RNA sequence: UGGAGGAUUGAGAAGGUUGAGCAGCUUGGUUUGUGCUGUUAUAACUGGUUAUAACCUCCAAGAAUAAAAACAAAGCACACAGUUCAGUCACUCUGCCUUGUGAAGGGCUGAUAUGUGUAUUUGUGAACAAAAC
Numbered sequence: 001u002g003g004a005g006g007a008u009u010g011a012g013a014a015g016g017u018u019g020a021g022c023a024g025c026u027u028g029g030u031u032u033g034u035g036c037u038g039u040u041a042u043a044a045c046u047g048g049u050u051a052u053a054a055c056c057u058c059c060a061a062g063a064a065u066a067a068a069a070a071c072a073a074a075g076c077a078c079a080c081a082g083u084u085c086a087g088u089c090a091c092u093c094u095g096c097c098u099u100g101u102g103a104a105g106g107g108c109u110g111a112u113a114u115g116u117g118u119a120u121u122u123g124u125g126a127a128c129a130a131a132a133c
Stems, first nucleotide, its partner, number of pairs: 002059005015046004020040006070124002074121002077118003085110005091105002
The record is a 133-nucleotide sequence from Sphaeramia orbicularis, which matches "Small nucleolar RNA SNORA47" in Rfam.
On this family, see Huttenhofer et al., EMBO J 2001: "RNomics: an experimental approach that identifies 201 candidates for novel, small, non-messenger RNAs in mouse".
By type it is an H/ACA-box small nucleolar RNA.
The organism belongs to Sphaeramia, within Eukaryota.
The family has 20 seed sequences and 733 matches in Rfam 15.1.